[Rfam]
RNA: mir-275 microRNA precursor family
Organism: Phaedon cochleariae
RNA sequence: CAGCUUGUUGCUAUGAGCGCUACCUCGGUGCCUCGGCUUGGUUUUUCGAAAGUCAGGUACCUGAAGUAGCGCGCGUAGCGACCGGUG
Numbered sequence: 001c002a003g004c005u006u007g008u009u010g011c012u013a014u015g016a017g018c019g020c021u022a023c024c025u026c027g028g029u030g031c032c033u034c035g036g037c038u039u040g041g042u043u044u045u046u047c048g049a050a051a052g053u054c055a056g057g058u059a060c061c062u063g064a065a066g067u068a069g070c071g072c073g074c075g076u077a078g079c080g081a082c083c084g085g086u087g
Stems, first nucleotide, its partner, number of pairs: 009080004014075001017072006030058003035054004